RNA sequence: CCACUUGCCCGAACCAUCGUCCCGUAUAUACGGGAAGGAAAGUCCGGACAGCGAAGGGCAACCCACCGGUGAACAGCCGGCUCCCGUUGCAGAACGGGAAGAGAUAGUGCCACAGAAAAUAACUGCUCCAUUCAAACGGAGUAAAGGUGAAAAUGUGAGGUAAGAGCUCACAUCCCAUGCUGGUAACAGUAUGAGAGGGUAAACCUUGGGUGCUGUAAUGCCAUGUAUAGGAACGUUUGAAGACGGCCCGUCUGAGUUCCAGGGUAGGCAGCAAGAUCGCAACAGUAAUGUUGCGGCCAGAUAAAUGAUGGUUUAGAAACAGAAUCCGGCUUACGAGGCAAGUGGUUUU
Numbered sequence: 001c002c003a004c005u006u007g008c009c010c011g012a013a014c015c016a017u018c019g020u021c022c023c024g025u026a027u028a029u030a031c032g033g034g035a036a037g038g039a040a041a042g043u044c045c046g047g048a049c050a051g052c053g054a055a056g057g058g059c060a061a062c063c064c065a066c067c068g069g070u071g072a073a074c075a076g077c078c079g080g081c082u083c084c085c086g087u088u089g090c091a092g093a094a095c096g097g098g099a100a101g102a103g104a105u106a107g108u109g110c111c112a113c114a115g116a117a118a119a120u121a122a123c124u125g126c127u128c129c130a131u132u133c134a135a136a137c138g139g140a141g142u143a144a145a146g147g148u149g150a151a152a153a154u155g156u157g158a159g160g161u162a163a164g165a166g167c168u169c170a171c172a173u174c175c176c177a178u179g180c181u182g183g184u185a186a187c188a189g190u191a192u193g194a195g196a197g198g199g200u201a202a203a204c205c206u207u208g209g210g211u212g213c214u215g216u217a218a219u220g221c222c223a224u225g226u227a228u229a230g231g232a233a234c235g236u237u238u239g240a241a242g243a244c245g246g247c248c249c250g251u252c253u254g255a256g257u258u259c260c261a262g263g264g265u266a267g268g269c270a271g272c273a274a275g276a277u278c279g280c281a282a283c284a285g286u287a288a289u290g291u292u293g294c295g296g297c298c299a300g301a302u303a304a305a306u307g308a309u310g311g312u313u314u315a316g317a318a319a320c321a322g323a324a325u326c327c328g329g330c331u332u333a334c335g336a337g338g339c340a341a342g343u344g345g346u347u348u349u
Stems, first nucleotide, its partner, number of pairs: 001345009011334001012313007020035006040332003044329005049215004056249004061211005066080005081101001082099007102206002107204002109200003123146002125142005131136001154172006174195001176193007219270004230260005241253004277296008

Shown here is a 349-nucleotide sequence from Hydrobacter penzbergensis, a member of the family "Bacterial RNase P class A". Ribonuclease P (RNase P) is a ubiquitous endoribonuclease, found in archaea, bacteria and eukarya as well as chloroplasts and mitochondria. Lineage of the source: Bacteria > Pseudomonadati > Bacteroidota > Chitinophagales > Hydrobacter.